[Rfam]
RNA: mir-276 microRNA precursor family
Organism: Cimex lectularius
RNA sequence: UGAGGCGUGAACCAAUAGCGAGGUAUAGAGUUCCUACGUGUCAUUUGCUUUCUGUAGGAACUUCAUACCGUGCUCUUGGCGAAGGUCCGCU
Numbered sequence: 001u002g003a004g005g006c007g008u009g010a011a012c013c014a015a016u017a018g019c020g021a022g023g024u025a026u027a028g029a030g031u032u033c034c035u036a037c038g039u040g041u042c043a044u045u046u047g048c049u050u051u052c053u054g055u056a057g058g059a060a061c062u063u064c065a066u067a068c069c070g071u072g073c074u075c076u077u078g079g080c081g082a083a084g085g086u087c088c089g090c091u
Stems, first nucleotide, its partner, number of pairs: 012079003017074004022069005028063010